Notes: The family of this 87-nucleotide RNA sequence from Saccharothrix australiensis is "ZMP/ZTP riboswitch aptamer (pfl RNA motif)". Pairs were carried over by alignment from the consensus structure, which is taken from published work.

[Rfam]
RNA sequence: GGAGCCGUUCGCGACUGGCGUGACGAGGGUGGGAACGACCACCGGGGAGCGACGAGCCGGCUUGCACCGCGCGCCUGGGUGCCACGG
Number, nucleotide and partner (000 for none) at each position: 001g000002g000003a000004g057005c056006c000007g000008u000009u052010c051011g050012c049013g000014a000015c046016u045017g075018g074019c073020g072021u071022g000023a000024c000025g000026a000027g000028g000029g042030u041031g040032g039033g000034a000035a000036c000037g000038a000039c032040c031041a030042c029043c000044g000045g016046g015047g000048a000049g012050c011051g010052a009053c000054g000055a000056g005057c004058c000059g000060g000061c000062u000063u000064g082065c081066a080067c079068c078069g000070c000071g021072c020073g019074c018075c017076u000077g000078g068079g067080u066081g065082c064083c000084a000085c000086g000087g000